This 95-nucleotide RNA sequence from Triticum turgidum belongs to the Rfam family "Small nucleolar RNA Z43". For this family Rfam cites "The high diversity of snoRNAs in plants: identification and comparative study of 120 snoRNA genes from Oryza sativa" (Chen et al., Nucleic Acids Res, 2003). The family's RNA type in Rfam is C/D-box small nucleolar RNA.

RNA sequence: GGAUGGCUACUAUUGAUAUUUUGUCUCGUUCGUCGUAACUGGCAUCUUCUUGCCCUGCCGACCAUCUGUUAUAUCACCACCCAUAUUCGGAGUCC
Numbered sequence: 001g002g003a004u005g006g007c008u009a010c011u012a013u014u015g016a017u018a019u020u021u022u023g024u025c026u027c028g029u030u031c032g033u034c035g036u037a038a039c040u041g042g043c044a045u046c047u048u049c050u051u052g053c054c055c056u057g058c059c060g061a062c063c064a065u066c067u068g069u070u071a072u073a074u075c076a077c078c079a080c081c082c083a084u085a086u087u088c089g090g091a092g093u094c095c
Base pairs, nucleotide, nucleotide: 001095002094003093004092044056